[Rfam]
RNA sequence: AUCCCUUUACCUUACUCCAGGAACUCUAACUGCAGUUUGGUUUCUGGCAUUGUCUGGGGAAAGAGAAAAAGGCUCACUUCCCUCCCUGACUGAAUAGAAGAUUCUUUUGGGGCCUAUACGUGAGCCAACAAA
Numbered sequence: 001a002u003c004c005c006u007u008u009a010c011c012u013u014a015c016u017c018c019a020g021g022a023a024c025u026c027u028a029a030c031u032g033c034a035g036u037u038u039g040g041u042u043u044c045u046g047g048c049a050u051u052g053u054c055u056g057g058g059g060a061a062a063g064a065g066a067a068a069a070a071g072g073c074u075c076a077c078u079u080c081c082c083u084c085c086c087u088g089a090c091u092g093a094a095u096a097g098a099a100g101a102u103u104c105u106u107u108u109g110g111g112g113c114c115u116a117u118a119c120g121u122g123a124g125c126c127a128a129c130a131a132a
Stems, first nucleotide, its partner, number of pairs: 004059004011052001017047009071126003075122002084112006092105001094103001
Dot-bracket structure: ...((((...(.....(((((((((.............)))))))))....)...))))...........(((.((.......((((((..(.(........).).))))))........)).)))......
This 132-nucleotide RNA from Polypterus senegalus belongs to the Rfam family "Small nucleolar RNA SNORA49". The family's consensus secondary structure was predicted with RNAalifold.